[Rfam]
RNA sequence: CAUGGAUCUAGAGAAAAUAUUUCUGCACAGACCAGACUAUUGAAAUCAGUGCGCUGAAAUGCUUCUGCUACACUCUG
Numbered sequence: 001c002a003u004g005g006a007u008c009u010a011g012a013g014a015a016a017a018u019a020u021u022u023c024u025g026c027a028c029a030g031a032c033c034a035g036a037c038u039a040u041u042g043a044a045a046u047c048a049g050u051g052c053g054c055u056g057a058a059a060u061g062c063u064u065c066u067g068c069u070a071c072a073c074u075c076u077g
Stems, first nucleotide, its partner, number of pairs: 001077002004074002007072001009070003013066001015064002018061006025054002028051002032049001
Dot-bracket structure: ((.((.(.(((.(.((.((((((.((.((..(................))).)).)))))).)).).))).))).))
This 77-nucleotide sequence from Sciurus carolinensis belongs to the Rfam family "mir-147 microRNA precursor family".
The base pairs follow the family's consensus structure, which was predicted with RNAalifold.
Rfam 15.1 lists 757 matches to the family in 593 species.